[Rfam]
RNA sequence: AAAUAGUGGAGACCAGCAACCACCUUAAAACGGGGCGAAGCCGAAAAGCCAAACGAGUAGGAAAAAC
Dot-bracket structure: .....((((..........))))..........(((....[[.....))).........]]......
Shown here is a 67-nucleotide sequence from Spirosoma linguale, a member of the family "DUF805 RNA". The sequence is in the family's curated seed alignment. Its Rfam clan is "DUF805 clan". By type it is a cis-regulatory element.